[Rfam]
RNA sequence: GGAAUAUAAAAAAAUGUCUUUUAACUUUUAACUAAAAGGCUAAAAACCGUAUUUAAGAGCCAGUUUUUAGCUUUUUAGUUAAAAGUUAAGAGACGGUUUCUUAUAUUCC
Numbered sequence: 001g002g003a004a005u006a007u008a009a010a011a012a013a014a015u016g017u018c019u020u021u022u023a024a025c026u027u028u029u030a031a032c033u034a035a036a037a038g039g040c041u042a043a044a045a046a047c048c049g050u051a052u053u054u055a056a057g058a059g060c061c062a063g064u065u066u067u068u069a070g071c072u073u074u075u076u077a078g079u080u081a082a083a084a085g086u087u088a089a090g091a092g093a094c095g096g097u098u099u100c101u102u103a104u105a106u107u108c109c
Stems, first nucleotide, its partner, number of pairs: 001109009011099003015095032
The family of this 109-nucleotide RNA sequence from Brassica carinata is "MIR9563 microRNA precursor family". The source organism's lineage runs through Eukaryota, Streptophytina, Magnoliopsida, Pentapetalae and Brassica. Gene Ontology terms of the family: miRNA-mediated post-transcriptional gene silencing and RISC complex. Rfam 15.1 lists 5,832 matches to the family in 9 species. The family's consensus secondary structure was predicted with RNAalifold.